The record is a 76-nucleotide sequence from Xanthomonas oryzae, which matches "Xanthomonas sRNA sX9" in Rfam.
For this family Rfam cites "Genome-wide transcriptome analysis of the plant pathogen Xanthomonas identifies sRNAs with putative virulence functions" (Schmidtke et al., Nucleic Acids Res, 2011).
By type it is a small RNA.
The match comes from Rfam's covariance-model search (62 bits).
[Rfam]
RNA sequence: AUGUACCACGCGUACACUCCGCUUCUGAGCGCGCCGUCCGCGCCCACCCGGCAGCCCUCGCGACGUUGUGUUAGCC
Numbered sequence: 001a002u003g004u005a006c007c008a009c010g011c012g013u014a015c016a017c018u019c020c021g022c023u024u025c026u027g028a029g030c031g032c033g034c035c036g037u038c039c040g041c042g043c044c045c046a047c048c049c050g051g052c053a054g055c056c057c058u059c060g061c062g063a064c065g066u067u068g069u070g071u072u073a074g075c076c
Stems, first nucleotide, its partner, number of pairs: 002016005020036002023033001025031001048074001050072004
The base pairs follow the family's consensus structure, which was predicted with RNAalifold. The family has 16 seed sequences and 309 matches in Rfam 15.1. The source organism's lineage runs through Bacteria, Pseudomonadati, Pseudomonadota, Lysobacteraceae and Xanthomonas oryzae pv. oryzae.